A member of the RNA family "Actinobacteria sRNA Ms_IGR-7" from Streptomyces tateyamensis, 118 nucleotides long. The pairing is the family consensus, mapped onto this sequence. Rfam classes the family as a small RNA. NCBI's taxonomy places the organism under Bacteria, Bacillati, Actinomycetota, Kitasatosporales, Streptomyces. A search with the family's covariance model found it, with a score of 50 bits.
RNA sequence: CGCGGAUGUUCUCUCGAUCUGGCGACCUGGUUCUGUAGGAAGUCCCAUCGUCCCAGGUCAGAGGGCAUCCGCGCCCUCACGUCCAGGUCCCGGACAGAUCAUUCAUCGGUGGAUCGGG
Numbered sequence: 001c002g003c004g005g006a007u008g009u010u011c012u013c014u015c016g017a018u019c020u021g022g023c024g025a026c027c028u029g030g031u032u033c034u035g036u037a038g039g040a041a042g043u044c045c046c047a048u049c050g051u052c053c054c055a056g057g058u059c060a061g062a063g064g065g066c067a068u069c070c071g072c073g074c075c076c077u078c079a080c081g082u083c084c085a086g087g088u089c090c091c092g093g094a095c096a097g098a099u100c101a102u103u104c105a106u107c108g109g110u111g112g113a114u115c116g117g118g
Stems, first nucleotide, its partner, number of pairs: 002072012016059002019056004028047001030045001033042002099116001101114005